RNA: mir-302 microRNA precursor family
Organism: Cavia porcellus
RNA sequence: CUUCCACUCUAACGUGGAGGCACUUUCUGGCCUUGCGACAACAGUAAGUGCUUCCAUGUUUUAGUAGAAG
Dot-bracket structure: (((..(((..(((((((((((((((.((..............)).)))))))))))))))..)))..)))